[Rfam]
RNA sequence: GCUCGCGUAGCUCAGCAGGUAGAGCACACCCUUGGUAAGGGUGAGGUCGCCGGUUCGAGCCCGGCCGCGAGCU
Numbered sequence: 001g002c003u004c005g006c007g008u009a010g011c012u013c014a015g016c017a018g019g020u021a022g023a024g025c026a027c028a029c030c031c032u033u034g035g036u037a038a039g040g041g042u043g044a045g046g047u048c049g050c051c052g053g054u055u056c057g058a059g060c061c062c063g064g065c066c067g068c069g070a071g072c073u
Base pairs, nucleotide, nucleotide: 001072002071003070004069005068006067007066010025011024012023013022027043028042029041030040031039049065050064051063052062053061
A member of the RNA family "tRNA" from Thermus thermophilus, 73 nucleotides long. NCBI's taxonomy places the organism under Bacteria, Deinococci, Thermales, Thermaceae, Thermus. Pairs were carried over by alignment from the consensus structure, which is taken from published work.